[Rfam]
RNA sequence: CUCUUAUCAAGAGAGGUGGAGGGACUGGCCCAAUGAAACCCGGCAACAACGUCUGAAGAGACGGAAUGUGCCAAUUCCUGCAGAAGUUCGGCUUCUGGCAGAUAAGAG
Numbered sequence: 001c002u003c004u005u006a007u008c009a010a011g012a013g014a015g016g017u018g019g020a021g022g023g024a025c026u027g028g029c030c031c032a033a034u035g036a037a038a039c040c041c042g043g044c045a046a047c048a049a050c051g052u053c054u055g056a057a058g059a060g061a062c063g064g065a066a067u068g069u070g071c072c073a074a075u076u077c078c079u080g081c082a083g084a085a086g087u088u089c090g091g092c093u094u095c096u097g098g099c100a101g102a103u104a105a106g107a108g
Base pairs, nucleotide, nucleotide: 001108002107003106004105005104006103007102008101013041015040016039017038021031022030023029025080027078028077042072043071044070045069047068048067050063051062052061076100081097082096083095084094085093086092
RNA: SAM riboswitch aptamer (S box leader)
Organism: Thermincola carboxydiphila